[Rfam]
A member of the RNA family "TD-2 RNA" from Treponema vincentii, 100 nucleotides long. For this family Rfam cites "Identification of 22 candidate structured RNAs in bacteria using the CMfinder comparative genomics pipeline" (Weinberg et al., Nucleic Acids Res, 2007). The organism belongs to Treponema vincentii, within Bacteria. A search with the family's covariance model found it, with a score of 71 bits. Clan: TD (Treponema denticola) motifs. The family's RNA type in Rfam is small RNA.
RNA sequence: ACGGACAGGGAUGUCCGUGAUGAUAAGCAGCAGCGAGAUUUGUGUUAUGCACAAAUCUCGUCGUUGAGAAGCGUACAAGGAAGUACGCUUCUCAACAGGC
Numbered sequence: 001a002c003g004g005a006c007a008g009g010g011a012u013g014u015c016c017g018u019g020a021u022g023a024u025a026a027g028c029a030g031c032a033g034c035g036a037g038a039u040u041u042g043u044g045u046u047a048u049g050c051a052c053a054a055a056u057c058u059c060g061u062c063g064u065u066g067a068g069a070a071g072c073g074u075a076c077a078a079g080g081a082a083g084u085a086c087g088c089u090u091c092u093c094a095a096c097a098g099g100c
Base pairs, nucleotide, nucleotide: 001018002017003016004015005014006013034060035059036058037057038056039055040054041053042052043051044050063096064095065094066093067092068091069090070089071088072087073086074085075084076083